[Rfam]
This 80-nucleotide sequence from Sulfitobacter mediterraneus belongs to the Rfam family "chrB-a RNA". The base pairs follow the family's consensus structure, which is taken from published work. The match comes from Rfam's covariance-model search (51 bits).
RNA sequence: CUCAUGGGGAGCAACCGCGAACGCCCCGUGAGGCGCCAGCCAAAAGUUCGCAUGUAUCCACAAAAAGGACGCAUGCCAUG
Numbered sequence: 001c002u003c004a005u006g007g008g009g010a011g012c013a014a015c016c017g018c019g020a021a022c023g024c025c026c027c028g029u030g031a032g033g034c035g036c037c038a039g040c041c042a043a044a045a046g047u048u049c050g051c052a053u054g055u056a057u058c059c060a061c062a063a064a065a066a067g068g069a070c071g072c073a074u075g076c077c078a079u080g
Stems, first nucleotide, its partner, number of pairs: 005028005050076006

The source organism's lineage runs through Bacteria, Pseudomonadati, Pseudomonadota, Alphaproteobacteria and Sulfitobacter.